[Rfam]
RNA sequence: UUGUUAAUGCUAAUUAUGAUUGGAGUUUUACCUUUAAUUGACUCCUACAUGUUAGCAUUGGCAC
Numbered sequence: 001u002u003g004u005u006a007a008u009g010c011u012a013a014u015u016a017u018g019a020u021u022g023g024a025g026u027u028u029u030a031c032c033u034u035u036a037a038u039u040g041a042c043u044c045c046u047a048c049a050u051g052u053u054a055g056c057a058u059u060g061g062c063a064c
Base pairs, nucleotide, nucleotide: 004061005060006059007058008057009056010055011054012053013052014051020047022045023044025042026041027040
The family of this 64-nucleotide RNA from Crocodylus porosus is "mir-155 microRNA precursor family".
The organism belongs to Crocodylus, within Eukaryota.
The match comes from Rfam's covariance-model search (61 bits).